[Rfam]
t44 RNA: a 104-nucleotide RNA sequence from Marinobacter profundi. The organism belongs to Marinobacter, within Bacteria.
RNA sequence: AAACGAAUCCGGCAAAUUCACACACGUGUCGGCACGUUGUCCCAGGGUGCCUUCUCCCGUUUGCGGGAGGAAGGUUGGGGCAAUCGGACGCGUGGAGGACUAAC
Numbered sequence: 001a002a003a004c005g006a007a008u009c010c011g012g013c014a015a016a017u018u019c020a021c022a023c024a025c026g027u028g029u030c031g032g033c034a035c036g037u038u039g040u041c042c043c044a045g046g047g048u049g050c051c052u053u054c055u056c057c058c059g060u061u062u063g064c065g066g067g068a069g070g071a072a073g074g075u076u077g078g079g080g081c082a083a084u085c086g087g088a089c090g091c092g093u094g095g096a097g098g099a100c101u102a103a104c
Stems, first nucleotide, its partner, number of pairs: 023094008036084009049075007
About the family: This family consists of a number of bacterial RNA genes of between 135 and 170 bases in length. The t44 gene has been identified in several species of enteric bacteria but homologs have also been identified in Pseudomonas and Coxiella species. The t44 gene is found between the map and rpsB genes in all species in the full alignment apart from Shigella flexneri. On this family, see Tjaden et al., Nucleic Acids Res 2002: "Transcriptome analysis of Escherichia coli using high-density oligonucleotide probe arrays".